[Rfam]
This 77-nucleotide sequence from Paraburkholderia panacisoli belongs to the Rfam family "Group II catalytic intron D1-D4-1". A reference for the family is Lehmann and Schmidt (2003), "Group II introns: structure and catalytic versatility of large natural ribozymes", Crit Rev Biochem Mol Biol.

RNA sequence: UGAACGGCUCGCAAGGGUUGUUGACCACCGCGCAGGAGUCAGCAGCGGGCAUAGUAGGGCAGCGAUGCCUGAAGGCC
Numbered sequence: 001u002g003a004a005c006g007g008c009u010c011g012c013a014a015g016g017g018u019u020g021u022u023g024a025c026c027a028c029c030g031c032g033c034a035g036g037a038g039u040c041a042g043c044a045g046c047g048g049g050c051a052u053a054g055u056a057g058g059g060c061a062g063c064g065a066u067g068c069c070u071g072a073a074g075g076c077c
Base pairs, nucleotide, nucleotide: 003022004021005020006019007018008017009016010015040045048077049076050075057070058069059068060067061066
Rfam describes the family as follows. Group II introns are found in rRNA, tRNA and mRNA of organelles in fungi, plants and protists, and also in mRNA in bacteria.